This 78-nucleotide sequence from Pseudocoprococcus catus belongs to the Rfam family "Fluoride riboswitch aptamer (crcB RNA motif)". The source organism's lineage runs through Bacteria, Bacillati, Bacillota, Clostridia and Pseudocoprococcus.

[Rfam]
Nucleotides: 078
Base pairs, nucleotide, nucleotide: 010026011025012024013023016069017068018067019066020065021064043059044058045057046056047055048054
Number, partner (000 for none) and nucleotide at each position: 001000u002000a003000u004000g005000u006000g007000u008000c009000a010026g011025g012024g013023a014000a015000u016069g017068a018067a019066g020065u021064u022000c023013u024012c025011c026010c027000u028000u029000g030000g031000g032000c033000a034000a035000c036000c037000a038000g039000a040000a041000c042000u043059g044058u045057u046056a047055u048054g049000a050000u051000g052000a053000u054048c055047a056046u057045a058044g059043c060000u061000g062000a063000u064021g065020a066019c067018u068017u069016c070000u071000a072000c073000g074000a075000u076000g077000a078000a